Acido-Lenti-1 RNA: a 46-nucleotide RNA from Novipirellula maiorica. It scores 43 bits against the family's covariance model. Taxonomically the source falls in Novipirellula maiorica (Bacteria, Planctomycetota, Planctomycetia, Pirellulaceae).

[Rfam]
RNA sequence: ACCCGGACUCACGUCCGGGGCUACCACCUGUCGUCGCGUUGCGACU
Numbered sequence: 001a002c003c004c005g006g007a008c009u010c011a012c013g014u015c016c017g018g019g020g021c022u023a024c025c026a027c028c029u030g031u032c033g034u035c036g037c038g039u040u041g042c043g044a045c046u
Stems, first nucleotide, its partner, number of pairs: 002019007033045005